[Rfam]
RNA sequence: UCCCCAUUUUAAGUCAAGGACCUAUCCGUUCCCUCGUGGAACAUGCUCUGUGGACUGGUUCUGUUACAAACUGGGAAGAUUGAGAACGACUCGCUUUCCUAAUGCCGUCUUGGCUGCGGGUUGACGGCUUCCGUUUUGGUUGCUGUCGCUAGAGUUCAGAGUGAUCUGUUUGAGUUGAGGGCCGACUCCGCCUGGCGGAACCUUGUGGCGGUCCUCUUAGUAACGCUUCACACACGC
Numbered sequence: 001u002c003c004c005c006a007u008u009u010u011a012a013g014u015c016a017a018g019g020a021c022c023u024a025u026c027c028g029u030u031c032c033c034u035c036g037u038g039g040a041a042c043a044u045g046c047u048c049u050g051u052g053g054a055c056u057g058g059u060u061c062u063g064u065u066a067c068a069a070a071c072u073g074g075g076a077a078g079a080u081u082g083a084g085a086a087c088g089a090c091u092c093g094c095u096u097u098c099c100u101a102a103u104g105c106c107g108u109c110u111u112g113g114c115u116g117c118g119g120g121u122u123g124a125c126g127g128c129u130u131c132c133g134u135u136u137u138g139g140u141u142g143c144u145g146u147c148g149c150u151a152g153a154g155u156u157c158a159g160a161g162u163g164a165u166c167u168g169u170u171u172g173a174g175u176u177g178a179g180g181g182c183c184g185a186c187u188c189c190g191c192c193u194g195g196c197g198g199a200a201c202c203u204u205g206u207g208g209c210g211g212u213c214c215u216c217u218u219a220g221u222a223a224c225g226c227u228u229c230a231c232a233c234a235c236g237c
Stems, first nucleotide, its partner, number of pairs: 003075004017062006025054002028042005087159001088156005099118001104114003123147005131139003161231004167225003177216004181209004187199005
RNA: Small nucleolar RNA snR191
Organism: Epicoccum nigrum